A member of the RNA family "mir-2765 microRNA precursor family" from Dendroctonus ponderosae, 83 nucleotides long. Gene Ontology terms of the family: RISC complex and miRNA-mediated post-transcriptional gene silencing. The source organism's lineage runs through Eukaryota, Protostomia, Polyphaga, Scolytinae and Dendroctonus.

RNA sequence: CAUACAGUGAGGAGUGGUAACUCCACCACCGUUGGCGUCUUUUUAACAGCCAGCGGUUGAGGAGUUCCUCAACCUCGCGGAUG
Numbered sequence: 001c002a003u004a005c006a007g008u009g010a011g012g013a014g015u016g017g018u019a020a021c022u023c024c025a026c027c028a029c030c031g032u033u034g035g036c037g038u039c040u041u042u043u044u045a046a047c048a049g050c051c052a053g054c055g056g057u058u059g060a061g062g063a064g065u066u067c068c069u070c071a072a073c074c075u076c077g078c079g080g081a082u083g
Stems, first nucleotide, its partner, number of pairs: 003081001005079001007078006016069002019066005026059001029056008